[Rfam]
RNA sequence: UGAUCAGAUAGGAUAAUUCUUACCUGUUCCACCUCUUGGAGGGCAGAACAGAACAUGAUGACUGGAGUUUGCAUGAUUCGUGAUUAAGGUCGCUGCGUGGUCAGGUGUUGCAACACCCUGAUUGCUACACCCUGAU
Number, nucleotide and partner (000 for none) at each position: 001u000002g000003a000004u000005c000006a000007g000008a000009u000010a000011g000012g000013a000014u000015a000016a000017u000018u000019c000020u000021u000022a000023c000024c046025u045026g044027u000028u043029c042030c041031a000032c039033c038034u000035c000036u000037u000038g033039g032040a000041g030042g029043g028044c026045a025046g024047a000048a000049c000050a000051g000052a000053a000054c000055a000056u000057g000058a000059u000060g000061a000062c000063u000064g000065g000066a000067g000068u000069u000070u000071g000072c000073a000074u000075g093076a000077u000078u000079c089080g000081u086082g000083a000084u000085u000086a081087a000088g000089g079090u000091c000092g000093c075094u000095g000096c000097g125098u124099g123100g122101u121102c120103a119104g118105g117106u000107g000108u000109u000110g000111c000112a000113a000114c000115a000116c000117c105118c104119u103120g102121a101122u100123u099124g098125c097126u000127a000128c000129a000130c000131c000132c000133u000134g000135a000136u000